[Rfam]
RNA sequence: UGACACACCUUGUUGAGCAGGGUGGGUCAAGACGUGGUAAAUCAAUUUAAGUGCCUCGUCUUUAAAUAAACCUCGUGAAUUGCUGGAAACUCUUUGCAUGACUUGUUGGCUACAACGCAACUGGAAACGGUCAACGUGAAUGCUUGAAAACAACAAGUGGAUAAAGACAAUCAGCAGCCAAGCUCCUUAAAGGGAGAAGGUUCAACGACCAGCGAAAGCACACUGAAUAAGUGGAAGCGAGUAGAGUAGGGAUCAAGUGAUUCCGAAGUGCGGGGGCACUCAUAGAGUGUAAGAUAUGGUCUGAACUCUAGGGCGACUUAGAG
Numbered sequence: 001u002g003a004c005a006c007a008c009c010u011u012g013u014u015g016a017g018c019a020g021g022g023u024g025g026g027u028c029a030a031g032a033c034g035u036g037g038u039a040a041a042u043c044a045a046u047u048u049a050a051g052u053g054c055c056u057c058g059u060c061u062u063u064a065a066a067u068a069a070a071c072c073u074c075g076u077g078a079a080u081u082g083c084u085g086g087a088a089a090c091u092c093u094u095u096g097c098a099u100g101a102c103u104u105g106u107u108g109g110c111u112a113c114a115a116c117g118c119a120a121c122u123g124g125a126a127a128c129g130g131u132c133a134a135c136g137u138g139a140a141u142g143c144u145u146g147a148a149a150a151c152a153a154c155a156a157g158u159g160g161a162u163a164a165a166g167a168c169a170a171u172c173a174g175c176a177g178c179c180a181a182g183c184u185c186c187u188u189a190a191a192g193g194g195a196g197a198a199g200g201u202u203c204a205a206c207g208a209c210c211a212g213c214g215a216a217a218g219c220a221c222a223c224u225g226a227a228u229a230a231g232u233g234g235a236a237g238c239g240a241g242u243a244g245a246g247u248a249g250g251g252a253u254c255a256a257g258u259g260a261u262u263c264c265g266a267a268g269u270g271c272g273g274g275g276g277c278a279c280u281c282a283u284a285g286a287g288u289g290u291a292a293g294a295u296a297u298g299g300u301c302u303g304a305a306c307u308c309u310a311g312g313g314c315g316a317c318u319u320a321g322a323g
Base pairs, nucleotide, nucleotide: 006024007023008022009021010020011019012018013017029046071275072274073273074272076270077269081176082175083174084173085172086171091167092166093165094164095163177201178200184194185193205302207301208300209299210298211297278288279287280286281285308321309320310319311318312317
Dot-bracket structure: .....((((((((...))))))))....(................)........................[[[[.[[...((((((....(((((...................................................................)))))...))))))((.....((.......)).....))...(.(((((.........................................................]].]]]]..((((...))))........)))))).....(((((....)))))..

The record is a 323-nucleotide RNA from Domibacillus mangrovi, which matches "Group I catalytic intron" in Rfam. Group I catalytic introns are large self-splicing ribozymes.